[Rfam]
RNA sequence: UGGUCGAUGGGUAACCCCACUGGUGAUUGAGCAGAAGUCAGCAGAGGGCAUAGUAGCCGAAUGCCCAUCGUAAUGGGUGGGACAUGGUGAAGGCC
Numbered sequence: 001u002g003g004u005c006g007a008u009g010g011g012u013a014a015c016c017c018c019a020c021u022g023g024u025g026a027u028u029g030a031g032c033a034g035a036a037g038u039c040a041g042c043a044g045a046g047g048g049c050a051u052a053g054u055a056g057c058c059g060a061a062u063g064c065c066c067a068u069c070g071u072a073a074u075g076g077g078u079g080g081g082a083c084a085u086g087g088u089g090a091a092g093g094c095c
Stems, first nucleotide, its partner, number of pairs: 001025002004023003008019004038045002047095003056088003065079001
Source information:
The family of this 95-nucleotide sequence from Marinobacter sp. BSs20148 is "Group II catalytic intron D1-D4-1". Rfam's curators write: Group II introns are found in rRNA, tRNA and mRNA of organelles in fungi, plants and protists, and also in mRNA in bacteria. A search with the family's covariance model found it, with a score of 54 bits.